[Rfam]
RNA sequence: UAGAUGUGCUCAGAGUGGGAGGCCUGAAGAAAUGGCCCCUCUAUUUGUAACACACCCAACAGGAAUCUGGGUUCACUGUGACAAGAGGCACAAAACUUGUGGCCUUCCUAUGAAUAAAUACCCUACACAU
Numbered sequence: 001u002a003g004a005u006g007u008g009c010u011c012a013g014a015g016u017g018g019g020a021g022g023c024c025u026g027a028a029g030a031a032a033u034g035g036c037c038c039c040u041c042u043a044u045u046u047g048u049a050a051c052a053c054a055c056c057c058a059a060c061a062g063g064a065a066u067c068u069g070g071g072u073u074c075a076c077u078g079u080g081a082c083a084a085g086a087g088g089c090a091c092a093a094a095a096c097u098u099g100u101g102g103c104c105u106u107c108c109u110a111u112g113a114a115u116a117a118a119u120a121c122c123c124u125a126c127a128c129a130u
Stems, first nucleotide, its partner, number of pairs: 003056001005054004013046007021038001022036003070123002073120001077116003082112002085105001087103001089101005
Dot-bracket structure: ..(.((((....(((((((.((((.........))).).)))))))....)))).).............((.(...(((..((.(.(.(((((...))))).).).....)).)))...).)).......
Small nucleolar RNA SNORA11: a 130-nucleotide RNA from Odocoileus virginianus. Rfam 15.1 lists 2,014 matches to the family in 202 species. A reference for the family is Gu et al. (2005), "A novel experimental approach for systematic identification of box H/ACA snoRNAs from eukaryotes", Nucleic Acids Res. The family's RNA type in Rfam is H/ACA-box small nucleolar RNA. Taxonomically the source falls in Odocoileus virginianus (Eukaryota, Ruminantia, Cervidae, Odocoileinae).